[Rfam]
Nucleotides: 107
Base pairs, nucleotide, nucleotide: 002041003040004039005038006037008035009034010033014028015027017025046099047098048097050096057087058086059085060084061083063081065079066078067077070075
Number, partner (000 for none) and nucleotide at each position: 001000g002041u003040g004039c005038c006037c007000c008035u009034u010033u011000a012000a013000g014028u015027g016000a017025c018000g019000u020000a021000a022000g023000a024000g025017g026000c027015u028014a029000a030000c031000a032000c033010a034009g035008a036000a037006g038005g039004g040003c041002a042000a043000a044000u045000u046099c047098u048097c049000c050096a051000u052000a053000a054000a055000a056000c057087c058086c059085a060084g061083a062000a063081a064000g065079g066078a067077g068000a069000c070075u071000g072000u073000a074000a075070a076000a077067c078066u079065c080000c081063u082000c083061u084060u085059u086058g087057g088000a089000u090000c091000c092000u093000g094000u095000c096050u097048g098047a099046g100000u101000c102000a103000c104000g105000c106000u107000g

Small nucleolar RNA SNORA26: a 107-nucleotide RNA from Myotis brandtii. About the family: The snoRNA HBI-6 belong to the H/ACA family of snoRNAs, guiding the pseudouridylation of position U4522 if the 28S rRNA. HBI-6 is the human orthologue of mouse MBI-6 snoRNA. The base pairs follow the family's consensus structure, which was predicted with RNAalifold. Taxonomically the source falls in Myotis (Eukaryota, Opisthokonta, Dipnotetrapodomorpha, Laurasiatheria). Rfam classes the family as an H/ACA-box small nucleolar RNA.